A member of the RNA family "Plastid-ccsA-ndhD-1 3UTR RNA" from Ricinus communis, 54 nucleotides long.
Plastid-ccsA-ndhD-1 is a non-coding RNA (ncRNA) recognised in plastids. It was found in the three prime untranslated region (3UTR) of ccsA and ndhD genes, its 3UTR location suggests a role in transcript maturation.
[Rfam]
RNA sequence: AAACCGUUGAGAACUUUUUGAAUCAUUAUAUUACUUGAUUCAAAAAGCUCUCAU
Numbered sequence: 001a002a003a004c005c006g007u008u009g010a011g012a013a014c015u016u017u018u019u020g021a022a023u024c025a026u027u028a029u030a031u032u033a034c035u036u037g038a039u040u041c042a043a044a045a046a047g048c049u050c051u052c053a054u
Stems, first nucleotide, its partner, number of pairs: 008053005014047012